[Rfam]
RNA: ribosomal frameshift site
RNA sequence: GGCGUCUACCUCUCGAAGGCAGACGCC
Numbered sequence: 001g002g003c004g005u006c007u008a009c010c011u012c013u014c015g016a017a018g019g020c021a022g023a024c025g026c027c
Base pairs, nucleotide, nucleotide: 001027002026003025004024005023006022007021009019010018011017